[Rfam]
RNA sequence: GUGUCAUGGUCAUUGUUGACCAUUCAUAUGAACCCUGCAAGUGCAUUGCAGCUUGUGUGGGGUUCAUUUAACGGUUAACAGAGACACUUGACAU
Numbered sequence: 001g002u003g004u005c006a007u008g009g010u011c012a013u014u015g016u017u018g019a020c021c022a023u024u025c026a027u028a029u030g031a032a033c034c035c036u037g038c039a040a041g042u043g044c045a046u047u048g049c050a051g052c053u054u055g056u057g058u059g060g061g062g063u064u065c066a067u068u069u070a071a072c073g074g075u076u077a078a079c080a081g082a083g084a085c086a087c088u089u090g091a092c093a094u
Stems, first nucleotide, its partner, number of pairs: 001094006009085003013081009023071002026069001028067012043052001

Source information:
Rfam assigns this 94-nucleotide RNA from Medicago truncatula to the family "MIR2587 microRNA precursor family". Rfam 15.1 lists 242 matches to the family in 3 species. Pairs were carried over by alignment from the consensus structure, which was predicted with RNAalifold. Gene Ontology terms of the family: miRNA-mediated post-transcriptional gene silencing and RISC complex. The literature on the family includes a 2009 paper in Plant Cell by Lelandais-Briere et al., "Genome-wide Medicago truncatula small RNA analysis revealed novel microRNAs and isoforms differentially regulated in roots and nodules". It scores 89 bits against the family's covariance model.